Notes:
Shown here is a 115-nucleotide RNA sequence from Trifolium pratense, a member of the family "MIR2593 microRNA precursor family". A search with the family's covariance model found it, with a score of 96 bits. Pairs were carried over by alignment from the consensus structure, which was predicted with RNAalifold.
[Rfam]
RNA sequence: AUAUAAGCAACACUGCACUUUUCAGAUUCAUUGAAUUAUUGAUGUAUUUGGUCUGUAUUAUAGUCCAAAUACACCGGUUAUUCAAUGAAUCUUAAAAGUGCAGUUUUGCUUAUAA
Dot-bracket structure: .((((((.((.((.((((((((.((.((((((((((.((((.((....(((.............)))....)).)))).)))))))))).)).)))))))).)).)).)))))).